[Rfam]
RNA sequence: ACUCCCGGGUGGAAGACUGGUGAUUUUGUUGUUUGAGCUCAUCCAUAACAGCAAAUCCGUAGUCUCCACCUGGCAACUCCUA
Numbered sequence: 001a002c003u004c005c006c007g008g009g010u011g012g013a014a015g016a017c018u019g020g021u022g023a024u025u026u027u028g029u030u031g032u033u034u035g036a037g038c039u040c041a042u043c044c045a046u047a048a049c050a051g052c053a054a055a056u057c058c059g060u061a062g063u064c065u066c067c068a069c070c071u072g073g074c075a076a077c078u079c080c081u082a
Stems, first nucleotide, its partner, number of pairs: 003075001005073006012067001014065005020060002022057005028052006

This 82-nucleotide RNA sequence from Ascaris suum belongs to the Rfam family "mir-7 microRNA precursor family".
The sequence is in the family's curated seed alignment.
NCBI's taxonomy places the organism under Eukaryota, Bilateria, Chromadorea, Spirurina, Ascaris.
Rfam links the family to the GO terms miRNA-mediated post-transcriptional gene silencing and RISC complex.
Pairs were carried over by alignment from the consensus structure, which was predicted with PFOLD.
This family represents the microRNA (miRNA) precursor mir-7.